[Rfam]
This 104-nucleotide RNA from Ziziphus jujuba belongs to the Rfam family "Small nucleolar RNA snoR99". Rfam links the family to the GO terms RNA processing and nucleolus. The family's consensus secondary structure was predicted with WAR. On this family, see Marker et al., Curr Biol 2002: "Experimental RNomics: identification of 140 candidates for small non-messenger RNAs in the plant Arabidopsis thaliana". It is annotated as an H/ACA-box small nucleolar RNA.

RNA sequence: GUGCUUCAGGGAUGAACAGGUCCCUCAUAUUAACGAUAUCCAUCCAAUUCACUUUAUCAGCUGUCUUUUUGGUUUCUUGCUGAUCAUUACCGGAUGGAAUAUCC
Number, nucleotide and partner (000 for none) at each position: 001g000002u000003g000004c000005u000006u000007c000008a000009g000010g000011g000012a000013u000014g000015a000016a000017c000018a000019g000020g000021u000022c000023c000024c000025u000026c000027a000028u000029a000030u000031u000032a000033a000034c000035g000036a000037u000038a000039u098040c097041c096042a095043u094044c093045c000046a000047a000048u000049u000050c000051a000052c000053u000054u000055u000056a084057u083058c082059a081060g080061c079062u000063g077064u000065c000066u000067u000068u000069u000070u000071g000072g000073u000074u000075u000076c000077u063078u000079g061080c060081u059082g058083a057084u056085c000086a000087u000088u000089a000090c000091c000092g000093g044094a043095u042096g041097g040098a039099a000100u000101a000102u000103c000104c000